[Rfam]
RNA sequence: UCUGAAUCAGUAUCCUUGAUCUUCCAAAGCUCAGAAAGUCUGUGCUGUCAUCACCUUUGUCUUUGCUUGAAUAUCAGAGAUCGAAGUUGAAAAACAGCACAACAUAU
Numbered sequence: 001u002c003u004g005a006a007u008c009a010g011u012a013u014c015c016u017u018g019a020u021c022u023u024c025c026a027a028a029g030c031u032c033a034g035a036a037a038g039u040c041u042g043u044g045c046u047g048u049c050a051u052c053a054c055c056u057u058u059g060u061c062u063u064u065g066c067u068u069g070a071a072u073a074u075c076a077g078a079g080a081u082c083g084a085a086g087u088u089g090a091a092a093a094a095c096a097g098c099a100c101a102a103c104a105u106a107u
Stems, first nucleotide, its partner, number of pairs: 041101007053088001055086004060080004
RNA: Small nucleolar RNA snoR97